[Rfam]
Shown here is a 45-nucleotide RNA from Actaea asiatica, a member of the family "Plastid-ccsA-ndhD-1 3UTR RNA".
Rfam describes the family as follows. Plastid-ccsA-ndhD-1 is a non-coding RNA (ncRNA) recognised in plastids. It was found in the three prime untranslated region (3UTR) of ccsA and ndhD genes, its 3UTR location suggests a role in transcript maturation.
The source organism's lineage runs through Eukaryota, Viridiplantae, Euphyllophyta, Spermatophyta and Actaea.
Rfam's curators put it in the seed alignment.

RNA sequence: UGAGAACCGUUUGAAUCAAGUAGUGAUUCAAAUGGUUCUCAAAAA
Numbered sequence: 001u002g003a004g005a006a007c008c009g010u011u012u013g014a015a016u017c018a019a020g021u022a023g024u025g026a027u028u029c030a031a032a033u034g035g036u037u038c039u040c041a042a043a044a045a
Base pairs, nucleotide, nucleotide: 001041002040003039004038005037006036007035008034009033010032011031012030013029014028015027016026017025018024